The family of this 316-nucleotide RNA sequence from Bacteroidales bacterium WCE2004 is "Bacterial RNase P class A". The source organism's lineage runs through Bacteria, Pseudomonadati, Bacteroidota, Bacteroidia and Bacteroidales. The family's consensus secondary structure is taken from published work.
RNA sequence: AAGGUGGAGCGAUCUGUCGCCCGCAAGGGAGGAAAGUCCGGACAGGACAGGGCAUCCCGCUGCGGAAAGCGCAGGUGGGGGUAACCUCACGCCAGCCGUAACAGAAAAUGACCGCCAUCCUCGGAUGGUAAGGGUGAAAACGCGGGGUAAGAGCCCACGACGCACGGCAGCGAUGUCGUGUGGGUACGGCACCGGGACCUGCAAGACCAAAUAUACUGGCAGACGAGGACGGCCCGUCCGAUGCCAGGGGGUAGGUUGCGAAGAUAAAUGACAGAGAAUCAGUGAACAGAAACCGGCUUACGGCUCCACCUUUUCU
Numbered sequence: 001a002a003g004g005u006g007g008a009g010c011g012a013u014c015u016g017u018c019g020c021c022c023g024c025a026a027g028g029g030a031g032g033a034a035a036g037u038c039c040g041g042a043c044a045g046g047a048c049a050g051g052g053c054a055u056c057c058c059g060c061u062g063c064g065g066a067a068a069g070c071g072c073a074g075g076u077g078g079g080g081g082u083a084a085c086c087u088c089a090c091g092c093c094a095g096c097c098g099u100a101a102c103a104g105a106a107a108a109u110g111a112c113c114g115c116c117a118u119c120c121u122c123g124g125a126u127g128g129u130a131a132g133g134g135u136g137a138a139a140a141c142g143c144g145g146g147g148u149a150a151g152a153g154c155c156c157a158c159g160a161c162g163c164a165c166g167g168c169a170g171c172g173a174u175g176u177c178g179u180g181u182g183g184g185u186a187c188g189g190c191a192c193c194g195g196g197a198c199c200u201g202c203a204a205g206a207c208c209a210a211a212u213a214u215a216c217u218g219g220c221a222g223a224c225g226a227g228g229a230c231g232g233c234c235c236g237u238c239c240g241a242u243g244c245c246a247g248g249g250g251g252u253a254g255g256u257u258g259c260g261a262a263g264a265u266a267a268a269u270g271a272c273a274g275a276g277a278a279u280c281a282g283u284g285a286a287c288a289g290a291a292a293c294c295g296g297c298u299u300a301c302g303g304c305u306c307c308a309c310c311u312u313u314u315c316u
Base pairs, nucleotide, nucleotide: 001312002311003310004309005308006307007306008305009304010303011301013275014274015273016272017271018270020029021028022027034299035298036297038296039295040294041293043201044200045199046198050235051234052233053232055197056196057195058194059193060074061073062072063071064070075090077088078087079086080085091192095190096189098187099186100185112133113132114129115128116127117126118125119124141159142158144156145155146154161183162181163180164179165178166177167176168175169174205257206256207255208254216247217246218245219244220243227239228238229237230236